This 221-nucleotide sequence from Chironomus riparius belongs to the Rfam family "Small nucleolar RNA U3".
Rfam classes the family as a C/D-box small nucleolar RNA.
It scores 135 bits against the family's covariance model.
From the family's description: Small nucleolar RNAs (snoRNAs) are involved in the processing and modification of rRNA in the nucleolus. There are two main classes of snoRNAs: the box C/D class, and the box H/ACA class.
The literature on the family includes a 1997 paper in Nucleic Acids Res by Zwieb, "The uRNA database".

RNA sequence: AAGACUGUGCUUCAGAGGAUCAUUUCUGUAGUCUGUCUUCAUACCUUAUUGUUUCUAAAUGAAACAUUAACAAGCCAUGAUGAGGAGUUGUGGCGUUUUUUCCUGAGCGUGAAGCCGGCAUGAGAACUGGAAGUAUUUUCGGUACUCAUUGCUAUUGAUGAUCGUUCACAUUCUAUUAAUUCAUUAGUAGAGUGGGAGGGAAAGAACGCUCUCUGAGUGGU
Numbered sequence: 001a002a003g004a005c006u007g008u009g010c011u012u013c014a015g016a017g018g019a020u021c022a023u024u025u026c027u028g029u030a031g032u033c034u035g036u037c038u039u040c041a042u043a044c045c046u047u048a049u050u051g052u053u054u055c056u057a058a059a060u061g062a063a064a065c066a067u068u069a070a071c072a073a074g075c076c077a078u079g080a081u082g083a084g085g086a087g088u089u090g091u092g093g094c095g096u097u098u099u100u101u102c103c104u105g106a107g108c109g110u111g112a113a114g115c116c117g118g119c120a121u122g123a124g125a126a127c128u129g130g131a132a133g134u135a136u137u138u139u140c141g142g143u144a145c146u147c148a149u150u151g152c153u154a155u156u157g158a159u160g161a162u163c164g165u166u167c168a169c170a171u172u173c174u175a176u177u178a179a180u181u182c183a184u185u186a187g188u189a190g191a192g193u194g195g196g197a198g199g200g201a202a203a204g205a206a207c208g209c210u211c212u213c214u215g216a217g218u219g220g221u
Stems, first nucleotide, its partner, number of pairs: 001039005007034001009032003016027004047062001052058001074221005093209012107165003117153004122147003127142005169194001171192009